[Rfam]
RNA sequence: AUAGUAUGGGAAAGGCUCCUGUAUGGUUAAAGCUACCAAAGGACAGUGCAGCUUUGUACUUGGCAUCCUUUAACCUAAAGUAAAUUCCCAAGGGAACAUUCUCUAGGGUUAGAAUUUCCAUUAACAGAUGUGAAGUCCUAGCAGCAGUUUGAUAACCAUGUAUGAUACUGUGAACAAAA
Number, nucleotide and partner (000 for none) at each position: 001a000002u000003a000004g074005u073006a000007u000008g070009g069010g068011a000012a000013a000014g000015g067016c000017u065018c063019c062020u000021g060022u000023a000024u058025g053026g052027u051028u050029a000030a000031a047032g000033c046034u000035a000036c000037c000038a000039a000040a000041g000042g000043a000044c000045a000046g033047u031048g000049c000050a028051g027052c026053u025054u000055u000056g000057u000058a024059c000060u021061u000062g019063g018064c000065a017066u000067c015068c010069u009070u008071u000072a000073a005074c004075c000076u000077a000078a000079a000080g000081u000082a000083a000084a000085u000086u000087c108088c107089c106090a104091a000092g102093g101094g100095a000096a000097c000098a000099u000100u094101c093102u092103c000104u090105a000106g089107g088108g087109u000110u000111a000112g000113a000114a000115u174116u173117u172118c000119c170120a169121u000122u167123a166124a000125c164126a163127g000128a000129u000130g000131u158132g157133a000134a000135g153136u152137c151138c000139u000140a149141g148142c147143a000144g000145c000146a000147g142148u141149u140150u000151g137152a136153u135154a000155a000156c000157c132158a131159u000160g000161u000162a000163u126164g125165a000166u123167a122168c000169u120170g119171u000172g117173a116174a115175c000176a000177a000178a000179a000
The record is a 179-nucleotide sequence from Rattus norvegicus, which matches "Small Cajal body specific RNA 16" in Rfam.
For this family Rfam cites "Cajal body-specific small nuclear RNAs: a novel class of 2'-O-methylation and pseudouridylation guide RNAs" (Darzacq et al., EMBO J, 2002).
The base pairs follow the family's consensus structure, which was predicted with RNAfold.
The source organism's lineage runs through Eukaryota, Dipnotetrapodomorpha, Rodentia, Muroidea and Rattus.
Rfam links the family to the GO terms RNA processing and nucleolus.
About the family: scaRNAs are a specific class of small nuclear RNAs which localise to the Cajal bodies and guide the modification of RNA polymerase II transcribed spliceosomal RNAs U1, U2, U4, U5 and U12.
The family has 37 seed sequences and 790 matches in Rfam 15.1.